[Rfam]
RNA sequence: UGGCGCCCAAUGUGGCGGCUGGAUACUGGGGGCACAUCGUGAGGGAGGACGGAAAAAGGAAGGAGUGCACUCGCUAAAUCUCAAGGAAUUCAGAGACACACCACGGGAGCCGGCCACAACCGAACCGAAAGUAAGUCAAUCCUUCUGAUCAUGGGGCAAGGAUUAAGCCAGCACCAGAUUUAUGUUACUCAGUUGAGGGAGGCUCUCAAGACAAGAGGAGUAAAUGUUAAGACUGUGGAUUUAUUUCAUUUCUUUGAUUUUGUGAAGGACAUUUGUCCUU
Number, nucleotide and partner (000 for none) at each position: 001u000002g000003g000004c000005g000006c031007c030008c029009a000010a000011u000012g026013u025014g024015g000016c000017g000018g000019c000020u000021g000022g000023a000024u014025a013026c012027u000028g000029g008030g007031g006032g000033c000034a000035c000036a000037u049038c048039g000040u046041g000042a000043g000044g000045g000046a040047g000048g038049a037050c000051g000052g000053a000054a000055a000056a000057a000058g000059g000060a000061a000062g000063g000064a000065g000066u000067g000068c000069a000070c000071u000072c000073g000074c000075u000076a000077a000078a000079u000080c000081u000082c000083a000084a000085g000086g000087a000088a000089u133090u129091c000092a000093g000094a000095g000096a000097c122098a000099c000100a000101c000102c000103a000104c000105g115106g114107g000108a000109g000110c000111c000112g000113g000114c106115c105116a000117c000118a000119a000120c000121c000122g097123a000124a000125c000126c000127g000128a000129a090130a000131g000132u000133a089134a000135g000136u000137c000138a000139a000140u158141c000142c156143u000144u155145c154146u153147g152148a000149u000150c000151a000152u147153g146154g145155g144156g142157c000158a140159a000160g000161g000162a000163u000164u000165a206166a000167g203168c202169c201170a000171g000172c000173a000174c000175c000176a000177g000178a000179u000180u000181u000182a000183u000184g000185u000186u000187a000188c000189u000190c000191a000192g000193u000194u000195g000196a000197g000198g000199g000200a000201g169202g168203c167204u000205c000206u165207c000208a000209a000210g000211a000212c000213a000214a000215g255216a254217g253218g252219a251220g250221u000222a000223a000224a242225u000226g240227u239228u238229a000230a000231g000232a000233c000234u000235g000236u000237g000238g228239a227240u226241u000242u224243a000244u000245u000246u000247c000248a000249u000250u220251u219252c218253u217254u216255u215256g000257a000258u000259u000260u000261u000262g000263u000264g000265a280266a279267g278268g277269a276270c275271a000272u000273u000274u000275g270276u269277c268278c267279u266280u265
The family of this 280-nucleotide sequence from Nannospalax galili is "Mason-Pfizer monkey virus packaging signal". A search with the family's covariance model found it, with a score of 130 bits. By type it is a cis-regulatory element. Its family is annotated with viral genome packaging in the Gene Ontology.